[Rfam]
RNA: msiK RNA
Nucleotides: 058
Stems, first nucleotide, its partner, number of pairs: 009050003013046003026043005
Number, partner (000 for none) and nucleotide at each position: 001000g002000c003000c004000a005000u006000a007000a008000c009050c010049u011048u012000c013046a014045u015044c016000c017000u018000c019000g020000g021000a022000u023000c024000g025000u026043c027042g028041g029040g030039c031000a032000c033000g034000u035000a036000c037000c038000a039030g040029c041028c042027c043026g044015g045014a046013u047000a048011a049010g050009g051000a052000a053000g054000u055000c056000u057000u058000c